[Rfam]
RNA sequence: CCCGCCACUAUGCCUGUCUGUGAGUGACUGAGUGUAAUCCAGUGGAGGCUCAGAGUGAACCCGGCUUUAGGAAACAGGUCUGCCCGAAAAUAAUGGACAACUCUGUGCCGUAAAGACUGGAACAAGA
Numbered sequence: 001c002c003c004g005c006c007a008c009u010a011u012g013c014c015u016g017u018c019u020g021u022g023a024g025u026g027a028c029u030g031a032g033u034g035u036a037a038u039c040c041a042g043u044g045g046a047g048g049c050u051c052a053g054a055g056u057g058a059a060c061c062c063g064g065c066u067u068u069a070g071g072a073a074a075c076a077g078g079u080c081u082g083c084c085c086g087a088a089a090a091u092a093a094u095g096g097a098c099a100a101c102u103c104u105g106u107g108c109c110g111u112a113a114a115g116a117c118u119g120g121a122a123c124a125a126g127a
Stems, first nucleotide, its partner, number of pairs: 005045005018032002020029001021027001060120002064117001065115004070109002075105004084096002
The record is a 127-nucleotide sequence from Cyclopterus lumpus, which matches "Small nucleolar RNA SNORA65" in Rfam. The match comes from Rfam's covariance-model search (77 bits). Its family is annotated with RNA processing and nucleolus in the Gene Ontology. The organism belongs to Cyclopterus, within Eukaryota. The family's RNA type in Rfam is H/ACA-box small nucleolar RNA. About the family: U65 belongs to the H/ACA class of snoRNAs which are thought to guide the sites of modification of uridines to pseudouridines. The base pairs follow the family's consensus structure, which was predicted with RNAalifold.